Shown here is a 173-nucleotide RNA from Bacillus sp. B1-b2, a member of the family "Group II catalytic intron D1-D4-3". For this family Rfam cites "Group II introns: structure and catalytic versatility of large natural ribozymes" (Lehmann and Schmidt, Crit Rev Biochem Mol Biol, 2003). The match comes from Rfam's covariance-model search (150 bits). Pairs were carried over by alignment from the consensus structure. The organism belongs to Bacillus, within Bacteria.
RNA sequence: UCCAUGGUGACGUGGAAUCUGAAGGAAGUCGGACGCAAAAUCUCGAACUGACGAACAGAAACUAGAUACAAGGCUGAAUUGGGACGGAUGAGUUUGCUAAACAAAACAAAGUCCAAUACUGCCCGAAUCCCAUACAGUAAAUCUAGCAGUUACAUGAGAGGAAAGUGGUUGUG
Numbered sequence: 001u002c003c004a005u006g007g008u009g010a011c012g013u014g015g016a017a018u019c020u021g022a023a024g025g026a027a028g029u030c031g032g033a034c035g036c037a038a039a040a041u042c043u044c045g046a047a048c049u050g051a052c053g054a055a056c057a058g059a060a061a062c063u064a065g066a067u068a069c070a071a072g073g074c075u076g077a078a079u080u081g082g083g084a085c086g087g088a089u090g091a092g093u094u095u096g097c098u099a100a101a102c103a104a105a106a107c108a109a110a111g112u113c114c115a116a117u118a119c120u121g122c123c124c125g126a127a128u129c130c131c132a133u134a135c136a137g138u139a140a141a142u143c144u145a146g147c148a149g150u151u152a153c154a155u156g157a158g159a160g161g162a163a164a165g166u167g168g169u170u171g172u173g
Base pairs, nucleotide, nucleotide: 001016002015003014004013005012006011030171031170032169035166036165041159042158043157044156045155046151047150048149049148050147062146063145064144065143066142067141073138074137075136080132081131082130083129084128086114087113088112089111092107093106094105095104